The record is a 98-nucleotide RNA from Clostridium sp. CAG:1024, which matches "azaaromatic riboswitch aptamer (yjdF RNA)" in Rfam.
Nucleotides: 098
Base pairs, nucleotide, nucleotide: 004090005089006088007087009085010084011083022041023040024039025038026037027036042055043054044053045052046051065075066074067073
Number, partner (000 for none) and nucleotide at each position: 001000c002000c003000c004090u005089g006088c007087a008000a009085a010084g011083a012000g013000a014000a015000a016000a017000a018000c019000a020000c021000a022041g023040u024039c025038c026037g027036g028000u029000u030000g031000g032000u033000a034000g035000u036027c037026c038025g039024g040023a041022c042055g043054c044053g045052g046051c047000g048000a049000a050000u051046g052045c053044c054043g055042u056000c057000a058000g059000u060000a061000a062000c063000c064000u065075g066074c067073c068000u069000c070000c071000u072000u073067g074066g075065u076000u077000g078000u079000c080000c081000g082000c083011u084010c085009u086000c087007u088006g089005c090004a091000a092000u093000g094000u095000u096000u097000u098000u